Description:
The record is a 77-nucleotide RNA from Rhodopseudomonas palustris, which matches "Makes More Granules Regulator RNA (mmgR)" in Rfam. The organism belongs to Rhodopseudomonas palustris, within Bacteria.
RNA sequence: UAUCGCUGCCCUCCUUGGGCGUUUCCUCCCUAGACUUGGGCCGCUUGCCAUCGCAAGCGGCCCUUUUUUCUUUUGGC
Numbered sequence: 001u002a003u004c005g006c007u008g009c010c011c012u013c014c015u016u017g018g019g020c021g022u023u024u025c026c027u028c029c030c031u032a033g034a035c036u037u038g039g040g041c042c043g044c045u046u047g048c049c050a051u052c053g054c055a056a057g058c059g060g061c062c063c064u065u066u067u068u069u070c071u072u073u074u075g076g077c
Stems, first nucleotide, its partner, number of pairs: 008020004039062009

Rfam classes the family as a small RNA.
The base pairs follow the family's consensus structure.
Its Rfam clan is "suhB sRNA clan".